[Rfam]
RNA sequence: UUUGAGGGGAAUGUCGUCUGGCUCGAAGGCCCAUCAAAUUUUCAGAACUUCUUCUUCUCAUGUAUUUCCAAAAUUUCUGAUUUUUUAAAAAUUUCAUUUGUUUUUAAUUUGCCUUCGGACCAGGCUUCAUUCCCCUCAAU
Numbered sequence: 001u002u003u004g005a006g007g008g009g010a011a012u013g014u015c016g017u018c019u020g021g022c023u024c025g026a027a028g029g030c031c032c033a034u035c036a037a038a039u040u041u042u043c044a045g046a047a048c049u050u051c052u053u054c055u056u057c058u059c060a061u062g063u064a065u066u067u068c069c070a071a072a073a074u075u076u077c078u079g080a081u082u083u084u085u086u087a088a089a090a091a092u093u094u095c096a097u098u099u100g101u102u103u104u105u106a107a108u109u110u111g112c113c114u115u116c117g118g119a120c121c122a123g124g125c126u127u128c129a130u131u132c133c134c135c136u137c138a139a140u
Stems, first nucleotide, its partner, number of pairs: 002139012016125006024117007